[Rfam]
RNA sequence: UGGAGCAAUGUAGGUGCGAAGUCGGUAAAAUGAUCCGAAUUUCGAAAAGAUUGCUCGGUGGUUAGCACGGGUCCCAAUCCUUUAACCUAUUCCAUUGCCGGCGGACCGCUUUAUUAAGGUCAUGGUAAUGGGUCGACGCGUUUGGGGACGAUGGGAGCGUUCUUCGGGGCGCUUCGGAAGCGUCGAACAAUCGACUCAGAACUGGUACGGACAUGGGGAAUCCGACUGUUUAAUUAAAACAAAGCAUUGCGAUGGUCCUCGAGGAUGCUCACGCAAUGUGAUUUCUGCCCAGUGCUCUGAAUGUCAAAGUGAAGAAAUUCAACCAAGCGCGGGUAAACGGCGGGAGUAACUAUGACUCUCUUAAGGUAGCCAAAUGCCUCGUCAUCUAAUUAGUGACGCGCAUGAAUGGAUUAACGAGAUUCCCACUGUCCCUGUCUACUAUCCAGCGAAACCACAACCAAGGGAACGGGCUUGACAGA
Numbered sequence: 001u002g003g004a005g006c007a008a009u010g011u012a013g014g015u016g017c018g019a020a021g022u023c024g025g026u027a028a029a030a031u032g033a034u035c036c037g038a039a040u041u042u043c044g045a046a047a048a049g050a051u052u053g054c055u056c057g058g059u060g061g062u063u064a065g066c067a068c069g070g071g072u073c074c075c076a077a078u079c080c081u082u083u084a085a086c087c088u089a090u091u092c093c094a095u096u097g098c099c100g101g102c103g104g105a106c107c108g109c110u111u112u113a114u115u116a117a118g119g120u121c122a123u124g125g126u127a128a129u130g131g132g133u134c135g136a137c138g139c140g141u142u143u144g145g146g147g148a149c150g151a152u153g154g155g156a157g158c159g160u161u162c163u164u165c166g167g168g169g170c171g172c173u174u175c176g177g178a179a180g181c182g183u184c185g186a187a188c189a190a191u192c193g194a195c196u197c198a199g200a201a202c203u204g205g206u207a208c209g210g211a212c213a214u215g216g217g218g219a220a221u222c223c224g225a226c227u228g229u230u231u232a233a234u235u236a237a238a239a240c241a242a243a244g245c246a247u248u249g250c251g252a253u254g255g256u257c258c259u260c261g262a263g264g265a266u267g268c269u270c271a272c273g274c275a276a277u278g279u280g281a282u283u284u285c286u287g288c289c290c291a292g293u294g295c296u297c298u299g300a301a302u303g304u305c306a307a308a309g310u311g312a313a314g315a316a317a318u319u320c321a322a323c324c325a326a327g328c329g330c331g332g333g334u335a336a337a338c339g340g341c342g343g344g345a346g347u348a349a350c351u352a353u354g355a356c357u358c359u360c361u362u363a364a365g366g367u368a369g370c371c372a373a374a375u376g377c378c379u380c381g382u383c384a385u386c387u388a389a390u391u392a393g394u395g396a397c398g399c400g401c402a403u404g405a406a407u408g409g410a411u412u413a414a415c416g417a418g419a420u421u422c423c424c425a426c427u428g429u430c431c432c433u434g435u436c437u438a439c440u441a442u443c444c445a446g447c448g449a450a451a452c453c454a455c456a457a458c459c460a461a462g463g464g465a466a467c468g469g470g471c472u473u474g475a476c477a478g479a
Base pairs, nucleotide, nucleotide: 001445002444003443004442010439011438012437013436014435015434016431018429033051034050035049040045053202055200056199058197060195061192063190065188068180072178073177074176076174077173078155079154080153082151083150091146092145093144094143096140097139099138100137102135103134104133106131107130111128112127113126114125115124116123204208216424217423218422219421220420221419222418223416224415227241228240229239244279245278246277247276248275249274250273251272255266256265257264258263283410284409285408287341288340289339292338293337294334295333296332297331299330302329303328304327310321311320312319313318342360343359344358345357346356347355361365381397382396383395384394385393459474460473461472462471